[Rfam]
RNA sequence: AGGAGUCCCACAGGGGCUACCUGAGACCACCUGUGCCCACAUUCACCAAAACACCCAUACGUGGUUUGGUGCUCAGUUUGUGCAUCAUGUGUUCUCAGGUCGCCCCUGCAGGCCUUUU
Numbered sequence: 001a002g003g004a005g006u007c008c009c010a011c012a013g014g015g016g017c018u019a020c021c022u023g024a025g026a027c028c029a030c031c032u033g034u035g036c037c038c039a040c041a042u043u044c045a046c047c048a049a050a051a052c053a054c055c056c057a058u059a060c061g062u063g064g065u066u067u068g069g070u071g072c073u074c075a076g077u078u079u080g081u082g083c084a085u086c087a088u089g090u091g092u093u094c095u096c097a098g099g100u101c102g103c104c105c106c107u108g109c110a111g112g113c114c115u116u117u118u
Stems, first nucleotide, its partner, number of pairs: 007112002011108004016103002019100001023096004028091003032087001
A member of the RNA family "MIR398 microRNA precursor family" from Rhamnella rubrinervis, 118 nucleotides long. Its family is annotated with miRNA-mediated post-transcriptional gene silencing and RISC complex in the Gene Ontology.